The record is a 65-nucleotide RNA from Loxodonta africana, which matches "Small nucleolar RNA SNORD77" in Rfam. The family is grouped with related families in Rfam's "SNORD77 clan". For this family Rfam cites "Guide RNAs with 5' caps and novel box C/D snoRNA-like domains for modification of snRNAs in metazoa" (Tycowski et al., Curr Biol, 2004). Rfam classes the family as a C/D-box small nucleolar RNA. Lineage of the source: Eukaryota > Craniata > Dipnotetrapodomorpha > Amniota > Loxodonta. Rfam describes the family as follows. U77 belongs to the C/D family of snoRNAs. It is predicted to guide 2'O-ribose methylation of large 28S rRNA subunit at position A1521. The C/D snoRNAs U44, U47, U74, U75, U76, U78, U79, U80 and U81 share the same host gene as U77 (non-coding). Its family is annotated with nucleolus and RNA processing in the Gene Ontology.

RNA sequence: AUACUGUGAUGACUGCAUAGUUCAGCAGAUUGCAUGAAGAGAUUUAUCACUUGUCUGAUGUAUCU
Numbered sequence: 001a002u003a004c005u006g007u008g009a010u011g012a013c014u015g016c017a018u019a020g021u022u023c024a025g026c027a028g029a030u031u032g033c034a035u036g037a038a039g040a041g042a043u044u045u046a047u048c049a050c051u052u053g054u055c056u057g058a059u060g061u062a063u064c065u
Base pairs, nucleotide, nucleotide: 001063002062003061004060009035010034013028014027015026016025040052041051043049